[Rfam]
RNA sequence: ACUAUUACCCUAACUUGAGCAUUGACUUUGACUACCAAAUGCAGUAAGUGCUACUGUUGGGGCAGUUUUA
Number, nucleotide and partner (000 for none) at each position: 001a000002c000003u000004a066005u065006u064007a000008c062009c061010c060011u059012a000013a057014c056015u000016u000017g054018a052019g051020c050021a049022u048023u047024g000025a045026c044027u043028u000029u000030g000031a000032c000033u000034a000035c000036c000037a000038a000039a000040u000041g000042c000043a027044g026045u025046a000047a023048g022049u021050g020051c019052u018053a000054c017055u000056g014057u013058u000059g011060g010061g009062g008063c000064a006065g005066u004067u000068u000069u000070a000